[Rfam]
The record is a 114-nucleotide RNA sequence from Gopherus evgoodei, which matches "Potassium channel RNA editing signal" in Rfam. Rfam classes the family as a cis-regulatory element. NCBI's taxonomy places the organism under Eukaryota, Deuterostomia, Tetrapoda, Testudinata, Gopherus.
RNA sequence: GUGGGCUAUGGGGACAUGAGGCCUGUCACUGUAGGGGGCAAGAUUGUGGGCUCCUUGUGUGCUAUCGCUGGCGUGCUGACCAUAGCCCUUCCCGUACCUGUCAUCGUGUCCAAC
Numbered sequence: 001g002u003g004g005g006c007u008a009u010g011g012g013g014a015c016a017u018g019a020g021g022c023c024u025g026u027c028a029c030u031g032u033a034g035g036g037g038g039c040a041a042g043a044u045u046g047u048g049g050g051c052u053c054c055u056u057g058u059g060u061g062c063u064a065u066c067g068c069u070g071g072c073g074u075g076c077u078g079a080c081c082a083u084a085g086c087c088c089u090u091c092c093c094g095u096a097c098c099u100g101u102c103a104u105c106g107u108g109u110c111c112a113a114c
Stems, first nucleotide, its partner, number of pairs: 001114002004111002007108005013102004018097001021095002037077004049063003
This family represents a group of sequences related to the human potassium channel Kv1.1 hairpin element which directs the efficient modification of an adenosine to inosine by an adenosine deaminase acting on RNA (ADAR). The ADAR modification causes an isoleucine/valine recoding event which lies in the ion-conducting pore of the potassium channel. It is thought that this editing event targets the process of fast inactivation and allows a more rapid recovery from inactivation at negative potentials. A search with the family's covariance model found it, with a score of 109 bits. The base pairs follow the family's consensus structure, which is taken from published work.